mir-9261 microRNA precursor family: a 90-nucleotide sequence from Pipistrellus kuhlii. A search with the family's covariance model found it, with a score of 88 bits. Pairs were carried over by alignment from the consensus structure, which was predicted with RNAalifold. Taxonomically the source falls in Pipistrellus (Eukaryota, Tetrapoda, Boreoeutheria, Laurasiatheria).

[Rfam]
RNA sequence: AACAAUUUGUCCCGCGUCCCUCGGCGUUUUAGAAAAAGUCCCAAAUCGGGACUUUUUUAAAAUGCCGAGGGACGUGGGACAAAUUGUUAA
Dot-bracket structure: (((((((((((((((((((((((((((((((((((..................)))))))))))))))))))))))))))))))))))..
Numbered sequence: 001a002a003c004a005a006u007u008u009g010u011c012c013c014g015c016g017u018c019c020c021u022c023g024g025c026g027u028u029u030u031a032g033a034a035a036a037a038g039u040c041c042c043a044a045a046u047c048g049g050g051a052c053u054u055u056u057u058u059a060a061a062a063u064g065c066c067g068a069g070g071g072a073c074g075u076g077g078g079a080c081a082a083a084u085u086g087u088u089a090a
Stems, first nucleotide, its partner, number of pairs: 001088035